[Rfam]
RNA sequence: UUUAUUUUUAGCCUUGUGAUGAUGAUAGUAUAUCUUCGAGUGGUGCCGCUUGUUUGUUUUUUGCCGAGACCCAUCAUCUCCA
Numbered sequence: 001u002u003u004a005u006u007u008u009u010a011g012c013c014u015u016g017u018g019a020u021g022a023u024g025a026u027a028g029u030a031u032a033u034c035u036u037c038g039a040g041u042g043g044u045g046c047c048g049c050u051u052g053u054u055u056g057u058u059u060u061u062u063g064c065c066g067a068g069a070c071c072c073a074u075c076a077u078c079u080c081c082a
Stems, first nucleotide, its partner, number of pairs: 018078007025035001027033001038051005052071001054069002057066001
Dot-bracket structure: .................((((((((.(.....).)..(((((....)))))(.((.(........).)).))))))))....
A member of the RNA family "Small Cajal body specific RNA ncR27" from Brassica rapa, 82 nucleotides long. NCBI's taxonomy places the organism under Eukaryota, Embryophyta, Tracheophyta, malvids, Brassica. It is one of the family's seed sequences.